[Rfam]
A member of the RNA family "Group II catalytic intron D1-D4-3", 170 nucleotides long. A reference for the family is Bonen and Vogel (2001), "The ins and outs of group II introns", Trends Genet.
RNA sequence: GCGACCGUGAGGGAGCGUCUGAAGGAAGCGGGGAACGAACCGACGGGCUGACGAACAGAAACCGGAUAUGAGGCGGUGCUGAUCAGGGCGAGCGGGCACAUGACCGCGAAGCUCUCGUGACCAAAGGUCAGUGGCGUAAAUCCGGUAGUCGUGUCGGGAAGGCCAGUGUU
Numbered sequence: 001g002c003g004a005c006c007g008u009g010a011g012g013g014a015g016c017g018u019c020u021g022a023a024g025g026a027a028g029c030g031g032g033g034a035a036c037g038a039a040c041c042g043a044c045g046g047g048c049u050g051a052c053g054a055a056c057a058g059a060a061a062c063c064g065g066a067u068a069u070g071a072g073g074c075g076g077u078g079c080u081g082a083u084c085a086g087g088g089c090g091a092g093c094g095g096g097c098a099c100a101u102g103a104c105c106g107c108g109a110a111g112c113u114c115u116c117g118u119g120a121c122c123a124a125a126g127g128u129c130a131g132u133g134g135c136g137u138a139a140a141u142c143c144g145g146u147a148g149u150c151g152u153g154u155c156g157g158g159a160a161g162g163c164c165a166g167u168g169u170u
Stems, first nucleotide, its partner, number of pairs: 001016002005012002028170001031167001036162001040157006046150005062145006073137003077133001079131006086114004092107004